[Rfam]
RNA sequence: GCGCUGCCCGCGCCGAGUCCAGUUUCGGAGCCGGGGAACCAGGUCACUUGGGGUGAAACGGGCGUACGCCCGUAGGGCAACCUUCCAGCCCGAAUCCGUCAGCUAACCCGGUAGGCGUGAGGUGAAGGGAAUA
Numbered sequence: 001g002c003g004c005u006g007c008c009c010g011c012g013c014c015g016a017g018u019c020c021a022g023u024u025u026c027g028g029a030g031c032c033g034g035g036g037a038a039c040c041a042g043g044u045c046a047c048u049u050g051g052g053g054u055g056a057a058a059c060g061g062g063c064g065u066a067c068g069c070c071c072g073u074a075g076g077g078c079a080a081c082c083u084u085c086c087a088g089c090c091c092g093a094a095u096c097c098g099u100c101a102g103c104u105a106a107c108c109c110g111g112u113a114g115g116c117g118u119g120a121g122g123u124g125a126a127g128g129g130a131a132u133a
Stems, first nucleotide, its partner, number of pairs: 011117004018029003030112006040050002051097003059072004075091004
Record summary:
c-di-AMP riboswitch aptamer (ydaO/yuaA leader): a 133-nucleotide RNA from Enemella dayhoffiae. Gene Ontology terms of the family: cyclic-di-AMP binding and regulation of gene expression. The source organism's lineage runs through Bacteria, Actinomycetota, Actinomycetes, Propionibacteriaceae and Enemella. The pairing is the family consensus, mapped onto this sequence.